[Rfam]
RNA sequence: AGGUAAUGUCUCCUUACCUUUAUCGACGGAGGCACUCGGCCAUGUUGUGGGUCGUCAAUCAGCGAUGACCUUAGACGCGUCCGUUGUCAUUGAUGUGGCGUGAGGUGAGGUUCAAUGCCUC
Number, nucleotide and partner (000 for none) at each position: 001a019002g018003g017004u016005a000006a000007u034008g033009u032010c031011u030012c029013c028014u000015u000016a004017c003018c002019u001020u000021u000022a000023u000024c000025g000026a000027c000028g013029g012030a011031g010032g009033c008034a007035c104036u103037c102038g101039g099040c098041c097042a096043u095044g094045u093046u092047g000048u000049g071050g070051g069052u000053c067054g066055u065056c064057a000058a000059u000060c000061a000062g000063c000064g056065a055066u054067g053068a000069c051070c050071u049072u000073a000074g088075a087076c086077g085078c000079g000080u000081c000082c000083g000084u000085u077086g076087u075088c074089a000090u000091u000092g046093a045094u044095g043096u042097g041098g040099c039100g000101u038102g037103a036104g035105g000106u000107g121108a120109g119110g118111u117112u000113c000114a000115a000116u000117g111118c110119c109120u108121c107
Overview: A member of the RNA family "epsC RNA" from Halalkalibacterium halodurans, 121 nucleotides long. Rfam 15.1 lists 450 matches to the family in 334 species. The organism belongs to Halalkalibacterium halodurans, within Bacteria.